About this RNA:
Guanidine-I riboswitch aptamer: a 111-nucleotide RNA from Amycolatopsis rhizosphaerae. It scores 73 bits against the family's covariance model. From the family's description: This family represents a conserved RNA structure found upstream of the ykkC and yxkD genes in Bacillus subtilis and related genes in other bacteria. The base pairs follow the family's consensus structure.

[Rfam]
RNA sequence: GCGGGGCGCGUCUAGGGUUCCGCCACCCACGGGUGGGCCUGGUCCGAGAGACGCAGGCGGUCCGCCCCGGAAGGCGGAACCGUUCCACGGCGGGAGAAAAGCCCGGGAGGC
Numbered sequence: 001g002c003g004g005g006g007c008g009c010g011u012c013u014a015g016g017g018u019u020c021c022g023c024c025a026c027c028c029a030c031g032g033g034u035g036g037g038c039c040u041g042g043u044c045c046g047a048g049a050g051a052c053g054c055a056g057g058c059g060g061u062c063c064g065c066c067c068c069g070g071a072a073g074g075c076g077g078a079a080c081c082g083u084u085c086c087a088c089g090g091c092g093g094g095a096g097a098a099a100a101g102c103c104c105g106g107g108a109g110g111c
Stems, first nucleotide, its partner, number of pairs: 008054005015045002020042002022039001023036005056084006063077001086106001088109001092104003